[Rfam]
RNA: Bacterial RNase P class A
RNA sequence: GAAGUUCGCCAGACCGCCGCUGGUGCAAGCCGAAAGGCCAACGCUUGCGUUGGGUGGAAACACCGCACUGGAGGAACGUCCGGACUGCAACGGGCAGCGUAGGAGCUAACGGCUCCCCACCGCGAGGUGAGGAUCAGAGCAACAGAGACGAGUCGGGCAGGCGUGGCGCAAGCCAAACCGGCCCGGGUGAAACGGGCAAUCUCUACGCGCAGCAACACCAAGUAGGCACACGUUGACGGGGCCCCCGGAGUGUGCGGGUAGGUGGCAUCGAGCCGCUCGGGCGACCGGCGGCCCAGAUUAAUGGCGGUCACGCGGCGGGCAACCGCCGUGCACAGAAUCCGGCUUAUCGGCGAACUUCACCC
Numbered sequence: 001g002a003a004g005u006u007c008g009c010c011a012g013a014c015c016g017c018c019g020c021u022g023g024u025g026c027a028a029g030c031c032g033a034a035a036g037g038c039c040a041a042c043g044c045u046u047g048c049g050u051u052g053g054g055u056g057g058a059a060a061c062a063c064c065g066c067a068c069u070g071g072a073g074g075a076a077c078g079u080c081c082g083g084a085c086u087g088c089a090a091c092g093g094g095c096a097g098c099g100u101a102g103g104a105g106c107u108a109a110c111g112g113c114u115c116c117c118c119a120c121c122g123c124g125a126g127g128u129g130a131g132g133a134u135c136a137g138a139g140c141a142a143c144a145g146a147g148a149c150g151a152g153u154c155g156g157g158c159a160g161g162c163g164u165g166g167c168g169c170a171a172g173c174c175a176a177a178c179c180g181g182c183c184c185g186g187g188u189g190a191a192a193c194g195g196g197c198a199a200u201c202u203c204u205a206c207g208c209g210c211a212g213c214a215a216c217a218c219c220a221a222g223u224a225g226g227c228a229c230a231c232g233u234u235g236a237c238g239g240g241g242c243c244c245c246c247g248g249a250g251u252g253u254g255c256g257g258g259u260a261g262g263u264g265g266c267a268u269c270g271a272g273c274c275g276c277u278c279g280g281g282c283g284a285c286c287g288g289c290g291g292c293c294c295a296g297a298u299u300a301a302u303g304g305c306g307g308u309c310a311c312g313c314g315g316c317g318g319g320c321a322a323c324c325g326c327c328g329u330g331c332a333c334a335g336a337a338u339c340c341g342g343c344u345u346a347u348c349g350g351c352g353a354a355c356u357u358c359a360c361c362c
Stems, first nucleotide, its partner, number of pairs: 001358010011347001012309007020071007076345001078343001080342005085212004092244004097208005102116005117131001118129004132203002137201002139197002154186001156183003160179002216264004226255006237247003272292005278287003